[Rfam]
Source information: Small nucleolar RNA snoR111: a 129-nucleotide RNA from Protea cynaroides. The family has 6 seed sequences and 533 matches in Rfam 15.1. The family's consensus secondary structure was predicted with WAR. The family's RNA type in Rfam is H/ACA-box small nucleolar RNA. Rfam links the family to the GO terms RNA processing and nucleolus.
RNA sequence: CAAUGGAACGAAGGCAUUGACAUUUGUGUCUCUCGUUGAUGAGAAUCAGAGGAAUAGCAAAUGGUAAGGCGAGAUAUCGUUUCAGUCGCUGUUUCUUUGGUUGGCGAUUUGAUUGUUGCUCGUCUACAU
Number, nucleotide and partner (000 for none) at each position: 001c000002a000003a000004u000005g000006g000007a037008a036009c035010g034011a033012a000013g030014g029015c028016a027017u026018u000019g000020a000021c000022a000023u000024u000025u000026g017027u016028g015029u014030c013031u000032c000033u011034c010035g009036u008037u007038g000039a000040u000041g000042a000043g000044a000045a000046u000047c000048a000049g000050a000051g000052g000053a000054a000055u000056a000057g000058c000059a000060a000061a000062u000063g000064g000065u000066a000067a125068g124069g000070c122071g121072a120073g119074a000075u000076a113077u112078c111079g110080u000081u000082u000083c000084a000085g108086u107087c106088g105089c104090u103091g102092u000093u100094u099095c000096u000097u000098u000099g094100g093101u000102u091103g090104g089105c088106g087107a086108u085109u000110u079111g078112a077113u076114u000115g000116u000117u000118g000119c073120u072121c071122g070123u000124c068125u067126a000127c000128a000129u000
It scores 84 bits against the family's covariance model.